[Rfam]
RNA sequence: ACAGAUUUGUACGACUGGCGGAAGUAGAAGAAACUACAGGGAGUACAAGGAUGAAUAUGUGUCGACCGCCUGGGCAACCAUU
Numbered sequence: 001a002c003a004g005a006u007u008u009g010u011a012c013g014a015c016u017g018g019c020g021g022a023a024g025u026a027g028a029a030g031a032a033a034c035u036a037c038a039g040g041g042a043g044u045a046c047a048a049g050g051a052u053g054a055a056u057a058u059g060u061g062u063c064g065a066c067c068g069c070c071u072g073g074g075c076a077a078c079c080a081u082u
Stems, first nucleotide, its partner, number of pairs: 003052001006049007015040002017070005024037004060076004

The record is an 82-nucleotide sequence from Blautia sp. An249, which matches "ZMP/ZTP riboswitch aptamer (pfl RNA motif)" in Rfam. Gene Ontology terms of the family: one-carbon metabolic process and regulation of purine nucleotide biosynthetic process. The base pairs follow the family's consensus structure, which is taken from published work.